[Rfam]
RNA sequence: GUCGGUCCUCGGUAGUGGCAGCCGGAGUAUGAACUCCGACCGCUUCGAUCGAUGGCCGCA
Numbered sequence: 001g002u003c004g005g006u007c008c009u010c011g012g013u014a015g016u017g018g019c020a021g022c023c024g025g026a027g028u029a030u031g032a033a034c035u036c037c038g039a040c041c042g043c044u045u046c047g048a049u050c051g052a053u054g055g056c057c058g059c060a
Stems, first nucleotide, its partner, number of pairs: 003058005009052005017044003021040001023038006
RNA: Actino-pnp RNA
Organism: Hoyosella rhizosphaerae